[Rfam]
RNA: Repression of heat shock gene expression (ROSE) element
RNA sequence: CCGGGCGCCGUGUUCGGGUCCGGCGGGACAUAGAGGGCGCUGGCUCCCGACCUUGCCGGCGCUCCUCGUGCCCAGAUCGCUUCUUUUGGAGGAUUUGGAUAUGAGGA
Numbered sequence: 001c002c003g004g005g006c007g008c009c010g011u012g013u014u015c016g017g018g019u020c021c022g023g024c025g026g027g028a029c030a031u032a033g034a035g036g037g038c039g040c041u042g043g044c045u046c047c048c049g050a051c052c053u054u055g056c057c058g059g060c061g062c063u064c065c066u067c068g069u070g071c072c073c074a075g076a077u078c079g080c081u082u083c084u085u086u087u088g089g090a091g092g093a094u095u096u097g098g099a100u101a102u103g104a105g106g107a
Base pairs, nucleotide, nucleotide: 001023002022003021004020005019006018008017009016035064036063037062038061039060040059041058042057043056044055065105066104067103068102069101070100072098073097074096075095076094077093078092080091081090082089